A member of the RNA family "Actinobacteria sRNA Ms_IGR-5" from Nocardiopsis gilva, 190 nucleotides long.
[Rfam]
Nucleotides: 190
Base pairs, nucleotide, nucleotide: 014059015058016057017056018055060095061094062093063092064091065090066089067088068087069086070085073082074081113184114183115182116181117180118179119178120177121176122175123174124173125172127148128147129146130145131144
Number, partner (000 for none) and nucleotide at each position: 001000a002000c003000g004000c005000a006000g007000g008000a009000a010000a011000g012000g013000a014059g015058g016057u017056g018055g019000u020000c021000c022000u023000a024000a025000c026000a027000g028000u029000g030000a031000a032000g033000g034000c035000u036000u037000a038000u039000g040000g041000g042000a043000c044000u045000u046000g047000c048000g049000a050000g051000g052000u053000g054000u055018c056017c057016g058015c059014c060095c061094g062093c063092u064091a065090g066089g067088g068087c069086g070085a071000c072000a073082c074081g075000a076000a077000g078000a079000g080000u081074c082073g083000g084000a085070u086069c087068g088067c089066u090065c091064u092063a093062g094061c095060g096000a097000a098000u099000c100000c101000a102000c103000a104000g105000u106000g107000g108000a109000c110000a111000c112000c113184c114183g115182g116181a117180u118179c119178c120177c121176c122175g123174g124173g125172c126000a127148g128147c129146c130145g131144g132000a133000c134000c135000u136000u137000g138000u139000c140000c141000u142000a143000c144131c145130c146129g147128g148127c149000c150000c151000c152000g153000c154000c155000g156000c157000c158000c159000a160000g161000c162000g163000g164000a165000g166000g167000g168000a169000a170000g171000c172125g173124c174123c175122u176121g177120g178119g179118g180117a181116u182115c183114u184113g185000u186000c187000a188000u189000g190000c
Pairs were carried over by alignment from the consensus structure.